[Rfam]
The record is a 155-nucleotide sequence from Populus trichocarpa, which matches "MIR2912 microRNA precursor family" in Rfam. It scores 117 bits against the family's covariance model. Pairs were carried over by alignment from the consensus structure, which was predicted with RNAalifold. Taxonomically the source falls in Populus (Eukaryota, Streptophytina, Pentapetalae, Saliceae). Its family is annotated with miRNA-mediated post-transcriptional gene silencing and RISC complex in the Gene Ontology.
RNA sequence: UCUAGAACUCUAGAUAUGAGCUGAACAUUGAACAGUGUUUGGGCUGCAAGACAGAUUCCAACUUCUCUUUUGUUGCUACAAUUUGAACUUGAAAAUGACCCAUUUGAAUUUGGACUCUUCAUUAAAGUUUUAGGCCUAUGUCUUAGCUUUCCAUC
Number, nucleotide and partner (000 for none) at each position: 001u000002c000003u153004a000005g151006a150007a149008c146009u145010c000011u000012a143013g142014a141015u140016a139017u138018g137019a000020g135021c133022u132023g131024a130025a129026c000027a128028u127029u126030g000031a000032a000033c000034a000035g122036u121037g120038u000039u000040u000041g118042g117043g116044c000045u114046g000047c000048a111049a110050g000051a109052c000053a000054g105055a104056u000057u102058c000059c000060a000061a000062c000063u097064u000065c000066u000067c000068u092069u091070u000071u000072g088073u087074u086075g000076c000077u000078a000079c000080a000081a000082u000083u000084u000085g000086a074087a073088c072089u000090u000091g069092a068093a000094a000095a000096u000097g063098a000099c000100c000101c000102a057103u000104u055105u054106g000107a000108a000109u051110u049111u048112g000113g000114a045115c000116u043117c042118u041119u000120c037121a036122u035123u000124a000125a000126a029127g028128u027129u025130u024131u023132a022133g021134g000135c020136c000137u018138a017139u016140g015141u014142c013143u012144u000145a009146g008147c000148u000149u007150u006151c005152c000153a003154u000155c000